[Rfam]
This 124-nucleotide RNA sequence from Yeosuana aromativorans belongs to the Rfam family "Bacteroidete tryptophan peptide leader RNA". It scores 65 bits against the family's covariance model. Gene Ontology terms of the family: S-adenosylmethionine metabolic process and regulation of gene expression. The family's RNA type in Rfam is cis-regulatory leader. The organism belongs to Yeosuana, within Bacteria.

RNA sequence: UGAACCGCAAUAAAAAAACAAUGAAUACAAUUUUAAAUAAUACUUGGUGGUGGAGCUUUCGAAACGUCAUUUCGUGAAGUAGUCGCUUGGUAUAUUUAAAAAUUAAAAUACAUAAAGGCUUGUC
Number, nucleotide and partner (000 for none) at each position: 001u000002g000003a000004a000005c000006c000007g000008c000009a000010a000011u000012a000013a000014a000015a000016a000017a000018a000019c000020a000021a000022u000023g000024a000025a000026u000027a000028c000029a000030a000031u000032u000033u000034u000035a000036a097037a096038u000039a000040a093041u092042a091043c090044u089045u000046g087047g086048u085049g084050g000051u000052g000053g083054a000055g080056c079057u078058u000059u000060c074061g000062a072063a071064a070065c000066g000067u000068c000069a000070u064071u063072u062073c000074g060075u000076g000077a000078a057079g056080u055081a000082g000083u053084c049085g048086c047087u046088u000089g044090g043091u042092a041093u040094a000095u000096u037097u036098a000099a000100a000101a000102a000103u000104u000105a000106a000107a000108a000109u000110a000111c000112a000113u000114a000115a000116a000117g000118g000119c000120u000121u000122g000123u000124c000